[Rfam]
RNA sequence: AUGCUUGGGUAAUCGCUGCGUGGUCUGGCCAUGCAGAGGAAAGUCCAUGCUCGCACAGGCUGAGAUGCCUGUAGUGUUCGUGCCUGACGAAACCAUAAGUCAGGGCAGCUCUAAUGGAGCUGACGGCAGGGAAGGCUCCUAAGUCCUUUCGGGGAUAAGGUGCUUGUACCUUGAAAGUGCCACAGUGACGAAGUUCAGCUGGAAACGGCUGAAGUGGAACGAGGUAAACCCCGCGAGCGAGCAACCCAAAUCAUGGUAGGGGCACUCUCCUGAGGGAAAUGAACCGGCAGGAGAGACAGGCAUUUGCCUGUAGAUAGAUGAUUACCACCGGAGUACGAGGCUGACCACCGUUUGCAGUACGAAGGUACAGAACAUGGCUUACAGAG
Numbered sequence: 001a002u003g004c005u006u007g008g009g010u011a012a013u014c015g016c017u018g019c020g021u022g023g024u025c026u027g028g029c030c031a032u033g034c035a036g037a038g039g040a041a042a043g044u045c046c047a048u049g050c051u052c053g054c055a056c057a058g059g060c061u062g063a064g065a066u067g068c069c070u071g072u073a074g075u076g077u078u079c080g081u082g083c084c085u086g087a088c089g090a091a092a093c094c095a096u097a098a099g100u101c102a103g104g105g106c107a108g109c110u111c112u113a114a115u116g117g118a119g120c121u122g123a124c125g126g127c128a129g130g131g132a133a134g135g136c137u138c139c140u141a142a143g144u145c146c147u148u149u150c151g152g153g154g155a156u157a158a159g160g161u162g163c164u165u166g167u168a169c170c171u172u173g174a175a176a177g178u179g180c181c182a183c184a185g186u187g188a189c190g191a192a193g194u195u196c197a198g199c200u201g202g203a204a205a206c207g208g209c210u211g212a213a214g215u216g217g218a219a220c221g222a223g224g225u226a227a228a229c230c231c232c233g234c235g236a237g238c239g240a241g242c243a244a245c246c247c248a249a250a251u252c253a254u255g256g257u258a259g260g261g262g263c264a265c266u267c268u269c270c271u272g273a274g275g276g277a278a279a280u281g282a283a284c285c286g287g288c289a290g291g292a293g294a295g296a297c298a299g300g301c302a303u304u305u306g307c308c309u310g311u312a313g314a315u316a317g318a319u320g321a322u323u324a325c326c327a328c329c330g331g332a333g334u335a336c337g338a339g340g341c342u343g344a345c346c347a348c349c350g351u352u353u354g355c356a357g358u359a360c361g362a363a364g365g366u367a368c369a370g371a372a373c374a375u376g377g378c379u380u381a382c383a384g385a386g
Stems, first nucleotide, its partner, number of pairs: 004386003007382001008326007016036006041380003045377005050241005055072006078236005083104006105124001106122006125231002128171003136162001138160002143156005177229002179225003194213008245261003265295007296311006328365002333360004
RNA: Bacterial RNase P class B
Organism: Melghiribacillus thermohalophilus